[Rfam]
Nucleotides: 068
Stems, first nucleotide, its partner, number of pairs: 008061011020049006
Number, partner (000 for none) and nucleotide at each position: 001000g002000g003000a004000u005000c006000c007000u008061g009060u010059a011058c012057u013056g014055a015054g016053c017052u018051g019000c020049c021048c022047c023046g024045a025044g026000g027000c028000c029000g030000u031000u032000u033000a034000a035000u036000g037000u038000g039000c040000c041000c042000c043000g044025c045024u046023c047022g048021g049020g050000g051018c052017a053016g054015c055014u056013c057012a058011g059010u060009a061008c062000a063000g064000g065000a066000u067000g068000c
The family of this 68-nucleotide sequence from Gulo gulo is "mir-486 microRNA precursor family".
A reference for the family is Jin et al. (2009), "Characterization of bovine miRNAs by sequencing and bioinformatics analysis", BMC Mol Biol.
The organism belongs to Gulo, within Eukaryota.
Pairs were carried over by alignment from the consensus structure, which was predicted with RNAalifold.
Rfam links the family to the GO terms miRNA-mediated post-transcriptional gene silencing and RISC complex.